[Rfam]
RNA: HOLDH RNA
RNA sequence: GUAGUGUUGAUGAAGAGGUCAACCGUGUCGGGAUAAUCUACGGCGUCCGGUCCCUUGGAAACAUUACCUUACUGUGAACUAGCACUUUGGGAAACCAUGAAUAACCUCUAGAGGGAGGUCGUGUGAGACAGUAAUGAAACUCCUAGACGUGGGCAAGCCUAACCAAAGGAGCAAUCGAAAACUCGAUGAUGAAGCAGCGUAAGCUCCCUGAUAUAUAACUCCCUGAUUCAAAGUUUAUAUUAAAGUAAUACGAGAGGUGGCGAGUAUAAAUAAAUUUCCUGUUAUGCAGCGGAUUGCAACCGAAACACGAUAUUAGUAGGCCGCAUGGGAAGAUAGAUACAUCUCUGGUCUUGUAGAGAUAGCAUAUUGAGCUACAAGAUGAUACUUAAACAAGUAU
Numbered sequence: 001g002u003a004g005u006g007u008u009g010a011u012g013a014a015g016a017g018g019u020c021a022a023c024c025g026u027g028u029c030g031g032g033a034u035a036a037u038c039u040a041c042g043g044c045g046u047c048c049g050g051u052c053c054c055u056u057g058g059a060a061a062c063a064u065u066a067c068c069u070u071a072c073u074g075u076g077a078a079c080u081a082g083c084a085c086u087u088u089g090g091g092a093a094a095c096c097a098u099g100a101a102u103a104a105c106c107u108c109u110a111g112a113g114g115g116a117g118g119u120c121g122u123g124u125g126a127g128a129c130a131g132u133a134a135u136g137a138a139a140c141u142c143c144u145a146g147a148c149g150u151g152g153g154c155a156a157g158c159c160u161a162a163c164c165a166a167a168g169g170a171g172c173a174a175u176c177g178a179a180a181a182c183u184c185g186a187u188g189a190u191g192a193a194g195c196a197g198c199g200u201a202a203g204c205u206c207c208c209u210g211a212u213a214u215a216u217a218a219c220u221c222c223c224u225g226a227u228u229c230a231a232a233g234u235u236u237a238u239a240u241u242a243a244a245g246u247a248a249u250a251c252g253a254g255a256g257g258u259g260g261c262g263a264g265u266a267u268a269a270a271u272a273a274a275u276u277u278c279c280u281g282u283u284a285u286g287c288a289g290c291g292g293a294u295u296g297c298a299a300c301c302g303a304a305a306c307a308c309g310a311u312a313u314u315a316g317u318a319g320g321c322c323g324c325a326u327g328g329g330a331a332g333a334u335a336g337a338u339a340c341a342u343c344u345c346u347g348g349u350c351u352u353g354u355a356g357a358g359a360u361a362g363c364a365u366a367u368u369g370a371g372c373u374a375c376a377a378g379a380u381g382a383u384a385c386u387u388a389a390a391c392a393a394g395u396a397u
Stems, first nucleotide, its partner, number of pairs: 001067008016055003022051004027044004069134007082124004088097003105118005140171005150161004181265005203246003209242006254345006276330004289324004300320002348380009382397006